The family of this 154-nucleotide RNA from Leptolyngbya sp. FACHB-261 is "Ribosomal protein L10 leader". It scores 60 bits against the family's covariance model.

[Rfam]
Nucleotides: 154
Base pairs, nucleotide, nucleotide: 028058029057030056031055032054034045035044036043114139115138116137117136118135119134120133121132122131123130
Number, partner (000 for none) and nucleotide at each position: 001000u002000a003000a004000c005000a006000a007000c008000u009000g010000c011000a012000u013000a014000u015000c016000u017000g018000a019000c020000c021000g022000g023000a024000g025000a026000c027000a028058g029057c030056a031055g032054g033000g034045g035044u036043c037000g038000c039000a040000u041000g042000c043036g044035a045034c046000u047000u048000a049000a050000u051000c052000a053000g054032c055031c056030u057029g058028c059000c060000g061000a062000g063000g064000u065000u066000g067000u068000g069000c070000c071000u072000a073000g074000g075000a076000a077000u078000u079000g080000c081000u082000c083000a084000g085000a086000u087000a088000u089000g090000g091000g092000c093000u094000u095000u096000c097000c098000u099000u100000u101000a102000g103000g104000g105000a106000c107000u108000u109000g110000c111000u112000c113000g114139c115138c116137c117136c118135c119134g120133g121132u122131c123130u124000g125000u126000u127000c128000u129000u130123g131122g132121a133120c134119u135118g136117g137116g138115g139114g140000u141000u142000u143000c144000g145000c146000g147000u148000u149000g150000g151000c152000a153000g154000c
Its family is annotated with regulation of gene expression in the Gene Ontology.
The family's RNA type in Rfam is cis-regulatory leader.
The base pairs follow the family's consensus structure, which was predicted with CMfinder.